A member of the RNA family "Ribosomal S15 leader" from Moellerella wisconsensis, 118 nucleotides long. Clan: Ribosomal Protein S15 Leader clan. Pairs were carried over by alignment from the consensus structure, which is taken from published work. Rfam describes the family as follows. The E. coli Ribosomal S15 gene 5' UTR can form two alternative structures. One that is a series of three hairpins, The other includes a pseudoknot. This structure causes translational regulation of the S15 protein.
RNA sequence: UUGAGAAGCUAAAUUAGAGAUUGGCUCUCGUUACCUAAUAUAUCAAUCAUCUGGAGUUAUUAUGUCUCUAAGUACUGAAGCGAAAGCAAAAAUUGUUGCAGAAUUUGGCCGUGGCGAA
Numbered sequence: 001u002u003g004a005g006a007a008g009c010u011a012a013a014u015u016a017g018a019g020a021u022u023g024g025c026u027c028u029c030g031u032u033a034c035c036u037a038a039u040a041u042a043u044c045a046a047u048c049a050u051c052u053g054g055a056g057u058u059a060u061u062a063u064g065u066c067u068c069u070a071a072g073u074a075c076u077g078a079a080g081c082g083a084a085a086g087c088a089a090a091a092a093u094u095g096u097u098g099c100a101g102a103a104u105u106u107g108g109c110c111g112u113g114g115c116g117a118a
Base pairs, nucleotide, nucleotide: 007026008025009024010023011022012021050072052070053069054068055067056066